[Rfam]
About this RNA: Rfam assigns this 135-nucleotide RNA sequence from Heterocephalus glaber to the family "Small nucleolar RNA SNORA42/SNORA80 family". It is annotated as an H/ACA-box small nucleolar RNA. Rfam describes the family as follows. The members of this family belong to the H/ACA class of snoRNAs that guide the sites of modification of uridines to pseudouridines. Human ACA42 (SNORA42) was cloned from HeLa cells by immunoprecipitation with anti-GAR1 antibody. Its is predicted to guide the pseudouridylation of residues U109 and U572 of 18S rRNA. ACA42 shares the same host gene with ACA26, ACA46, ACA50. This family also includes mammalian snoRNA ACA67 (SNORA80) which was identified by computational screening and its expression in mouse experimentally verified by Northern blot and primer extension analysis. It scores 71 bits against the family's covariance model. Lineage of the source: Eukaryota > Bilateria > Euteleostomi > Bathyergidae > Heterocephalus.
RNA sequence: GCAUAGGUUUGGUGUUAUGGCAGCCCCAUUUCCCUGGAUCUCUUCUUACCAGUUCCUGUGUCAGAGCAGACUGGCUCCAAAUUAUUGCCUGGCCUCUGCAUCUAUAGGCUGCUGGCCCUGAAGGGUCGCACAGUU
Numbered sequence: 001g002c003a004u005a006g007g008u009u010u011g012g013u014g015u016u017a018u019g020g021c022a023g024c025c026c027c028a029u030u031u032c033c034c035u036g037g038a039u040c041u042c043u044u045c046u047u048a049c050c051a052g053u054u055c056c057u058g059u060g061u062c063a064g065a066g067c068a069g070a071c072u073g074g075c076u077c078c079a080a081a082u083u084a085u086u087g088c089c090u091g092g093c094c095u096c097u098g099c100a101u102c103u104a105u106a107g108g109c110u111g112c113u114g115g116c117c118c119u120g121a122a123g124g125g126u127c128g129c130a131c132a133g134u135u
Base pairs, nucleotide, nucleotide: 001061002060003059004058006055007054015048017046019044020043022041023040025037026036072128073127074126075125076124077123083120084119088115089114090111091110092109093108094107095106